RNA sequence: ACCUGUCGCGGGCGGCGCGCGAGGUGCCCGCGACAUCAGACAGAACACCGUGCCACGGGAACAUCGGGGCACUUCAGGGCGUU
Numbered sequence: 001a002c003c004u005g006u007c008g009c010g011g012g013c014g015g016c017g018c019g020c021g022a023g024g025u026g027c028c029c030g031c032g033a034c035a036u037c038a039g040a041c042a043g044a045a046c047a048c049c050g051u052g053c054c055a056c057g058g059g060a061a062c063a064u065c066g067g068g069g070c071a072c073u074u075c076a077g078g079g080c081g082u083u
Stems, first nucleotide, its partner, number of pairs: 004035011016023001050072005056066002
RNA: nrdJ RNA